Shown here is a 79-nucleotide RNA from Anolis carolinensis, a member of the family "mir-2188 microRNA precursor family". Rfam links the family to the GO terms miRNA-mediated post-transcriptional gene silencing and RISC complex.
RNA sequence: ACUUGUGGUCAAGGUCCAACCUCACGUGUCCUGUAUGCGAUAAAAGAGGGAUGCGUGUGGUCAGACCUAGCCCACAAGC
Numbered sequence: 001a002c003u004u005g006u007g008g009u010c011a012a013g014g015u016c017c018a019a020c021c022u023c024a025c026g027u028g029u030c031c032u033g034u035a036u037g038c039g040a041u042a043a044a045a046g047a048g049g050g051a052u053g054c055g056u057g058u059g060g061u062c063a064g065a066c067c068u069a070g071c072c073c074a075c076a077a078g079c
Stems, first nucleotide, its partner, number of pairs: 002078001004076005010070001012068005019061003023057006030050003